[Rfam]
Nucleotides: 140
Stems, first nucleotide, its partner, number of pairs: 020052003024048001026047001028045001034042002084116001086114001087112001089110001091108004096103001129140004
Number, partner (000 for none) and nucleotide at each position: 001000a002000g003000c004000u005000u006000u007000g008000c009000g010000c011000a012000g013000u014000g015000g016000c017000a018000g019000u020052g021051u022050c023000a024048u025000a026047g027000c028045c029000a030000a031000u032000g033000g034042g035041g036000u037000u038000u039000a040000u041035c042034u043000g044000a045028g046000a047026u048024g049000a050022g051021a052020u053000u054000a055000u056000c057000g058000c059000u060000a061000a062000u063000u064000g065000a066000a067000a068000a069000c070000a071000a072000u073000c074000c075000c076000a077000a078000u079000a080000c081000c082000c083000c084116g085000c086114c087112g088000a089110g090000a091108u092107g093106a094105c095000a096103u097000g098000u099000a100000a101000u102000a103096g104000a105094g106093u107092c108091g109000g110089c111000a112087u113000u114086g115000a116084c117000a118000a119000c120000u121000u122000u123000u124000g125000a126000c127000a128000g129140u130139c131138u132137c133000u134000a135000g136000g137132g138131a139130g140129a
A member of the RNA family "U4 spliceosomal RNA" from Callithrix jacchus, 140 nucleotides long. The literature on the family includes a 2019 paper in Science by Charenton et al., "Mechanism of 5' splice site transfer for human spliceosome activation". Lineage of the source: Eukaryota > Mammalia > Haplorrhini > Simiiformes > Callithrix. It scores 79 bits against the family's covariance model.